[Rfam]
RNA sequence: UUUUUGGAAUAUCGGGUGUCCGCCAUCCUCCUCCGGCUGUUCUCCUUCACAGCUGCCGGCCGACACCGCACAGGCGAUAUUCCGCUUCGUGUGCAAAAAAGUCCGUC
Numbered sequence: 001u002u003u004u005u006g007g008a009a010u011a012u013c014g015g016g017u018g019u020c021c022g023c024c025a026u027c028c029u030c031c032u033c034c035g036g037c038u039g040u041u042c043u044c045c046u047u048c049a050c051a052g053c054u055g056c057c058g059g060c061c062g063a064c065a066c067c068g069c070a071c072a073g074g075c076g077a078u079a080u081u082c083c084g085c086u087u088c089g090u091g092u093g094c095a096a097a098a099a100a101g102u103c104c105g106u107c
Stems, first nucleotide, its partner, number of pairs: 007082007015067006022060003034055007068092004072087004
Shown here is a 107-nucleotide RNA, a member of the family "IMPDH RNA".
It is annotated as a small RNA.
The sequence is in the family's curated seed alignment.